A member of the RNA family "permuted transfer-messenger RNA" from Lutibaculum baratangense, 215 nucleotides long. The family's consensus secondary structure is taken from published work. From the family's description: Bacterial tmRNA, also known as 10Sa RNA or SsrA, is named for its dual tRNA and mRNA-like properties. Its role is to liberate the mRNA from a stalled ribosome. To accomplish this part of the tmRNA is used as a reading frame that ends in a translation stop signal. The broken mRNA is replaced in the ribosome by the tmRNA and translation of the tmRNA leads to addition of a proteolysis tag to the incomplete protein enabling recognition by a protease. By type it is a non-coding RNA gene.

[Rfam]
RNA sequence: GGCGAUACAGGACCGUCGUAAUAAGCCCAUCGGACCCGGGGGCAGUACCCGGCGCCUCCACCCGAACCGAUCCCUCGAUGGUCGGCUCCGGCGGGGGCGAAACAGGAUCGACGAGGGUGUAAAGGACGGAUCUUCGCCCGGCAUGGUACCACCGUCAUCGGACCAAAAAUGUAGUUGCGAAUGACAACUAUGCUCCGGUGGCUCAGGCUGCGUAA
Numbered sequence: 001g002g003c004g005a006u007a008c009a010g011g012a013c014c015g016u017c018g019u020a021a022u023a024a025g026c027c028c029a030u031c032g033g034a035c036c037c038g039g040g041g042g043c044a045g046u047a048c049c050c051g052g053c054g055c056c057u058c059c060a061c062c063c064g065a066a067c068c069g070a071u072c073c074c075u076c077g078a079u080g081g082u083c084g085g086c087u088c089c090g091g092c093g094g095g096g097g098c099g100a101a102a103c104a105g106g107a108u109c110g111a112c113g114a115g116g117g118u119g120u121a122a123a124g125g126a127c128g129g130a131u132c133u134u135c136g137c138c139c140g141g142c143a144u145g146g147u148a149c150c151a152c153c154g155u156c157a158u159c160g161g162a163c164c165a166a167a168a169a170u171g172u173a174g175u176u177g178c179g180a181a182u183g184a185c186a187a188c189u190a191u192g193c194u195c196c197g198g199u200g201g202c203u204c205a206g207g208c209u210g211c212g213u214a215a
Stems, first nucleotide, its partner, number of pairs: 001138005014128004026117003030114003036052005053099007139154003